Shown here is a 132-nucleotide RNA, a member of the family "Glycine riboswitch aptamer".
Rfam links the family to the GO term glycine biosynthetic process.
RNA sequence: GUUUCCCCGGCUGGAGAGAGGCCUGCCUUGGCUUGGCAGGCCCACCGAAGGAGCAAGCCCCGCAACGCACCGCCACCAGGCAGCGCGCACGGCGUGGUGAAUCUCUCAGGUAAAGCGGACAGCGGGCACAGG
Numbered sequence: 001g002u003u004u005c006c007c008c009g010g011c012u013g014g015a016g017a018g019a020g021g022c023c024u025g026c027c028u029u030g031g032c033u034u035g036g037c038a039g040g041c042c043c044a045c046c047g048a049a050g051g052a053g054c055a056a057g058c059c060c061c062g063c064a065a066c067g068c069a070c071c072g073c074c075a076c077c078a079g080g081c082a083g084c085g086c087g088c089a090c091g092g093c094g095u096g097g098u099g100a101a102u103c104u105c106u107c108a109g110g111u112a113a114a115g116c117g118g119a120c121a122g123c124g125g126g127c128a129c130a131g132g
Base pairs, nucleotide, nucleotide: 007126008125010123011122012121013120020042021041022040023039024038025037026036027035044111045110046109047107048106051105052104053103057098058097